[Rfam]
RNA sequence: UGGACAGGGGGGUCCCUGCCGCACCGGCAGGGCCUGUCCUCCAGGUUGCGCGAACGCGUGGCCCAGUGGUUGUCGCUCGGGGGUGAACGCCG
Numbered sequence: 001u002g003g004a005c006a007g008g009g010g011g012g013u014c015c016c017u018g019c020c021g022c023a024c025c026g027g028c029a030g031g032g033c034c035u036g037u038c039c040u041c042c043a044g045g046u047u048g049c050g051c052g053a054a055c056g057c058g059u060g061g062c063c064c065a066g067u068g069g070u071u072g073u074c075g076c077u078c079g080g081g082g083g084u085g086a087a088c089g090c091c092g
Base pairs, nucleotide, nucleotide: 002039003038004037005036006035007034008033014032015031016030017029018028019027020026044063045062046061047060048059049058050057051056
Dot-bracket structure: .(((((((.....(((((((.....))))))))))))))....((((((((....)))))))).............................
Overview
Shown here is a 92-nucleotide RNA from Streptomyces sp. C, a member of the family "che1 RNA". Taxonomically the source falls in Streptomyces (Bacteria, Actinomycetota, Actinomycetes, Streptomycetaceae). Rfam classes the family as a small RNA. The family's consensus secondary structure is taken from published work.